A member of the RNA family "TPP riboswitch aptamer (THI element)" from Hydrogenovibrio marinus, 119 nucleotides long.
[Rfam]
RNA sequence: UCACAUCUCUCGGGGUGCGAAGUUCUUUUUUCAAAAAGAACAGAGCUGAGACUGCGCAAGCUAAACCCGUUGAACUUGAACUGGUUAAGACCAGCGUAGGGAAGAGAACUCCAAGUCAA
Numbered sequence: 001u002c003a004c005a006u007c008u009c010u011c012g013g014g015g016u017g018c019g020a021a022g023u024u025c026u027u028u029u030u031u032c033a034a035a036a037a038g039a040a041c042a043g044a045g046c047u048g049a050g051a052c053u054g055c056g057c058a059a060g061c062u063a064a065a066c067c068c069g070u071u072g073a074a075c076u077u078g079a080a081c082u083g084g085u086u087a088a089g090a091c092c093a094g095c096g097u098a099g100g101g102a103a104g105a106g107a108a109c110u111c112c113a114a115g116u117c118a119a
Stems, first nucleotide, its partner, number of pairs: 006107005011069004016063001017046002054061002075100004081094004
The base pairs follow the family's consensus structure, which is taken from published work.
Its family is annotated with thiamine pyrophosphate binding in the Gene Ontology.
The source organism's lineage runs through Bacteria, Pseudomonadota, Gammaproteobacteria, Thiotrichales and Hydrogenovibrio.